[Rfam]
RNA sequence: UUGAAUCGCAGAUAGAAAUAGGCUGUAUAAUCACAUAACCAAAUUAACGUUUAAGUGUCAUGUGCUGGCACUGGUCGUGAUGGGUGGGUUGUCCGAGAAUGGAUAGCCCAUUUUUAUUUC
Number, nucleotide and partner (000 for none) at each position: 001u000002u000003g000004a000005a000006u000007c000008g026009c025010a024011g023012a000013u020014a019015g000016a000017a000018a000019u014020a013021g000022g000023c011024u010025g009026u008027a000028u000029a000030a081031u080032c079033a078034c077035a000036u000037a000038a075039c074040c073041a072042a051043a050044u049045u000046a000047a000048c000049g044050u043051u042052u000053a000054a000055g071056u070057g069058u068059c067060a066061u000062g000063u000064g000065c000066u060067g059068g058069c057070a056071c055072u041073g040074g039075u038076c000077g034078u033079g032080a031081u030082g000083g000084g000085u110086g109087g108088g107089u106090u105091g104092u103093c102094c101095g000096a000097g000098a000099a000100u000101g094102g093103a092104u091105a090106g089107c088108c087109c086110a085111u000112u000113u000114u000115u000116a000117u000118u000119u000120c000
Shown here is a 120-nucleotide RNA, a member of the family "DUF3800-I RNA". Actinobacteria, Firmicutes, Fusobacteria, Proteobacteria (1 example), Tenericutes (2 examples). Rfam's curators put it in the seed alignment.